The record is a 77-nucleotide RNA sequence from Sus scrofa, which matches "mir-582 microRNA precursor family" in Rfam. Rfam links the family to the GO terms RISC complex and miRNA-mediated post-transcriptional gene silencing. The base pairs follow the family's consensus structure, which was predicted with RNAalifold. Lineage of the source: Eukaryota > Eumetazoa > Euteleostomi > Theria > Sus. Rfam's curators put it in the seed alignment.
[Rfam]
RNA sequence: CUCUUUGGUUACAGUUGUUCAACCAGUUACUAAUCUAACUAACUGUAACCGGUUGAACAACUGAACCCAAAGGGUGC
Numbered sequence: 001c002u003c004u005u006u007g008g009u010u011a012c013a014g015u016u017g018u019u020c021a022a023c024c025a026g027u028u029a030c031u032a033a034u035c036u037a038a039c040u041a042a043c044u045g046u047a048a049c050c051g052g053u054u055g056a057a058c059a060a061c062u063g064a065a066c067c068c069a070a071a072g073g074g075u076g077c
Base pairs, nucleotide, nucleotide: 001074002073003072004071005070006069007068012063013062014061015060016059017058018057019056020055021054022053023052026049027048028047029046030045